[Rfam]
RNA sequence: UCGUCAGUGAGGUAUAUCCUGACCUGUUCCGCCUCGCGCGGGCAGAGGGUGAUGAGUGCGCCGUGAUGACGUCAUGAUUACGUCACGCGGGGGCCGCGGUGGUUCCGGCAACAAAACCUCGCGGUCCUGAUAGCUCUGAC
Numbered sequence: 001u002c003g004u005c006a007g008u009g010a011g012g013u014a015u016a017u018c019c020u021g022a023c024c025u026g027u028u029c030c031g032c033c034u035c036g037c038g039c040g041g042g043c044a045g046a047g048g049g050u051g052a053u054g055a056g057u058g059c060g061c062c063g064u065g066a067u068g069a070c071g072u073c074a075u076g077a078u079u080a081c082g083u084c085a086c087g088c089g090g091g092g093g094c095c096g097c098g099g100u101g102g103u104u105c106c107g108g109c110a111a112c113a114a115a116a117c118c119u120c121g122c123g124g125u126c127c128u129g130a131u132a133g134c135u136c137u138g139a140c
Stems, first nucleotide, its partner, number of pairs: 024045003028042005070087001072085001074083001075080001091127009
Shown here is a 140-nucleotide RNA from Acanthisitta chloris, a member of the family "U8 small nucleolar RNA". For this family Rfam cites "The U8 snoRNA gene family: identification and characterization of distinct, functional U8 genes in Xenopus" (Peculis et al., Gene, 2001). Gene Ontology terms of the family: nucleolus and RNA processing. Rfam classes the family as a C/D-box small nucleolar RNA. The match comes from Rfam's covariance-model search (45 bits). Rfam 15.1 lists 1,597 matches to the family in 457 species. NCBI's taxonomy places the organism under Eukaryota, Eumetazoa, Euteleostomi, Amniota, Acanthisitta.